[Rfam]
RNA: c-di-AMP riboswitch aptamer (ydaO/yuaA leader)
RNA sequence: ACCAUGUAAAUGCUGAAUUCCCGAGCAGGGAAACGGGGGAACCAACCGGUCCAUUAGACCGCGGGGUGAAUCUCUAACCGGCCAUUCCGAUUAGCGUAGGGCUUCUCCUGGCCCGAAUCCGCCAGCUAACCUCGUAAGCUAGAAGGAGAGAACCA
Numbered sequence: 001a002c003c004a005u006g007u008a009a010a011u012g013c014u015g016a017a018u019u020c021c022c023g024a025g026c027a028g029g030g031a032a033a034c035g036g037g038g039g040a041a042c043c044a045a046c047c048g049g050u051c052c053a054u055u056a057g058a059c060c061g062c063g064g065g066g067u068g069a070a071u072c073u074c075u076a077a078c079c080g081g082c083c084a085u086u087c088c089g090a091u092u093a094g095c096g097u098a099g100g101g102c103u104u105c106u107c108c109u110g111g112c113c114c115g116a117a118u119c120c121g122c123c124a125g126c127u128a129a130c131c132u133c134g135u136a137a138g139c140u141a142g143a144a145g146g147a148g149a150g151a152a153c154c155a
Stems, first nucleotide, its partner, number of pairs: 012139003018032005033135006043063001064120003072096001074094004099114004